[Rfam]
Shown here is a 105-nucleotide sequence from Vitis rotundifolia, a member of the family "Small nucleolar RNA Z107/R87". Its family is annotated with RNA processing and nucleolus in the Gene Ontology. The organism belongs to Vitis, within Eukaryota. A reference for the family is Chen et al. (2003), "The high diversity of snoRNAs in plants: identification and comparative study of 120 snoRNA genes from Oryza sativa", Nucleic Acids Res. The family's RNA type in Rfam is C/D-box small nucleolar RNA. The family's consensus secondary structure was predicted with RNAfold.
RNA sequence: GAUCGCGGUGAUGACCCAUUGAAAUUCAAGCUCAACAGACCGGAAUGCGGAGUUUGUCUCCUUUGAGAGCCUCGCGUGUCGACCACCCCGCUGAACUGAGCGAUC
Numbered sequence: 001g002a003u004c005g006c007g008g009u010g011a012u013g014a015c016c017c018a019u020u021g022a023a024a025u026u027c028a029a030g031c032u033c034a035a036c037a038g039a040c041c042g043g044a045a046u047g048c049g050g051a052g053u054u055u056g057u058c059u060c061c062u063u064u065g066a067g068a069g070c071c072u073c074g075c076g077u078g079u080c081g082a083c084c085a086c087c088c089c090g091c092u093g094a095a096c097u098g099a100g101c102g103a104u105c
Stems, first nucleotide, its partner, number of pairs: 001105006